Rfam assigns this 435-nucleotide part of an RNA from Eptatretus burgeri to the family "Eukaryotic large subunit ribosomal RNA". The base pairs follow the family's consensus structure, which is taken from published work. Rfam links the family to the GO terms structural constituent of ribosome and ribosome. NCBI's taxonomy places the organism under Eukaryota, Eumetazoa, Vertebrata, Myxini, Eptatretus.
Nucleotides: 435
Base pairs, nucleotide, nucleotide: 015033016032017031018030019029020028034433035432036431037430043413044412045411046410049393050392054079055078056077057076058075060074064072065071086389087388088387090145091144095139096138097113099111101110102109103108119132120131121130149167150166151165152164153163170385171384172383173382175381176380177379178378179377180375181374185196186195187194188193203362204361205360206359207358208357212347213346214345215344217342218341219340220339221338222337223336225332226331227330228248229247231245232244233243252302253301254300255299256298262292263291264290265289266288267287272282273281274280309327310326311325312324313323314322399408400407415427416426417425418424
Number, partner (000 for none) and nucleotide at each position: 001000g002000g003000u004000a005000g006000u007000a008000g009000c010000a011000a012000a013000u014000a015033u016032u017031c018030a019029a020028a021000u022000g023000a024000g025000a026000a027000c028020u029019u030018u031017g032016a033015a034433g035432g036431c037430c038000g039000a040000a041000g042000a043413g044412g045411a046410g047000a048000a049393a050392g051000g052000u053000u054079c055078c056077a057076u058075g059000g060074u061000g062000a063000a064072c065071g066000g067000c068000a069000c070000u071065u072064g073000c074060a075058c076057a077056u078055g079054g080000g081000u082000a083000a084000g085000c086389c087388g088387a089000u090145c091144c092000u093000a094000a095139g096138g097113g098000a099111c100000g101110g102109g103108g104000u105000a106000a107000c108103c109102c110101c111099g112000g113097c114000a115000g116000a117000u118000a119132g120131c121130g122000c123000g124000a125000u126000c127000a128000c129000g130121c131120g132119c133000a134000u135000c136000c137000c138096c139095c140000g141000a142000a143000a144091g145090g146000g147000a148000a149167u150166c151165g152164g153163g154000u155000u156000a157000a158000g159000a160000u161000u162000u163153c164152c165151c166150g167149a168000g169000c170385c171384g172383g173382g174000a175381u176380g177379u178378g179377g180375c181374g182000g183000u184000u185196g186195a187194c188193g189000g190000c191000g192000a193188c194187g195186u196185u197000a198000g199000g200000a201000a202000g203362u204361c205360c206359g207358g208357a209000g210000a211000c212347g213346c214345c215344g216000g217342c218341g219340g220339g221338g222337g223336c224000c225332u226331c227330g228248g229247g230000a231245a232244g233243a234000g235000u236000u237000a238000u239000c240000u241000u242000u243233u244232c245231u246000g247229c248228u249000u250000a251000a252302c253301g254300g255299c256298c257000u258000g259000c260000c261000a262292a263291c264290c265289c266288u267287g268000g269000a270000a271000a272282c273281g274280g275000u276000u277000c278000a279000g280274c281273c282272g283000g284000a285000g286000g287267u288266a289265g290264g291263g292262u293000c294000c295000a296000g297000u298256g299255g300254c301253c302252g303000g304000a305000a306000g307000a308000g309327c310326a311325c312324c313323g314322c315000a316000c317000g318000u319000c320000g321000c322314g323313c324312g325311g326310u327309g328000u329000c330227c331226g332225g333000u334000g335000c336223g337222c338221c339220c340219c341218c342217g343000g344215c345214g346213g347212c348000c349000c350000a351000u352000g353000a354000a355000a356000a357208u358207c359206c360205g361204g362203a363000g364000g365000a366000c367000c368000g369000a370000g371000u372000a373000c374181c375180g376000u377179u378178c379177a380176c381175g382173c383172c384171c385170g386000g387088u388087c389086g390000u391000a392050c393049u394000c395000a396000u397000a398000a399408c400407c401000g402000c403000a404000u405000c406000a407400g408399g409000u410046c411045u412044c413043c414000a415427a416426g417425g418424u419000g420000a421000a422000c423000a424418g425417c426416c427415u428000c429000u430037g431036g432035c433034c434000a435000a